[Rfam]
RNA sequence: GGGUGCAGCCGCCGUCGGCUGCAGGCAUCGUGGAUGGUCGGGCCGCCAUCC
Numbered sequence: 001g002g003g004u005g006c007a008g009c010c011g012c013c014g015u016c017g018g019c020u021g022c023a024g025g026c027a028u029c030g031u032g033g034a035u036g037g038u039c040g041g042g043c044c045g046c047c048a049u050c051c
Stems, first nucleotide, its partner, number of pairs: 005022007032051007

Source information:
The family of this 51-nucleotide sequence is "nhaA-I RNA". Rfam classes the family as a riboswitch. Acidobacteria, Alphaproteobacteria, Betaproteobacteria and Gammaproteobacteria, Verrucomicrobia, cand. division NC10.